[Rfam]
RNA: STnc490 Hfq binding RNA
Organism: Scopulibacillus darangshiensis
RNA sequence: AACCCUAGGCUAGGCCUAGGGUUCAGGAAAGCUUUUAGCGAUGUAUCAAAAAAAGCCCCUCUUAGUGCUAAAAUAAACUUUGGUUCGCCAACCAAAUUUAUCGAACAAGGAGGG
Numbered sequence: 001a002a003c004c005c006u007a008g009g010c011u012a013g014g015c016c017u018a019g020g021g022u023u024c025a026g027g028a029a030a031g032c033u034u035u036u037a038g039c040g041a042u043g044u045a046u047c048a049a050a051a052a053a054a055g056c057c058c059c060u061c062u063u064a065g066u067g068c069u070a071a072a073a074u075a076a077a078c079u080u081u082g083g084u085u086c087g088c089c090a091a092c093c094a095a096a097u098u099u100a101u102c103g104a105a106c107a108a109g110g111a112g113g114g
Stems, first nucleotide, its partner, number of pairs: 001023010028042001031039003057114005066107002069104001073101002076099002079096006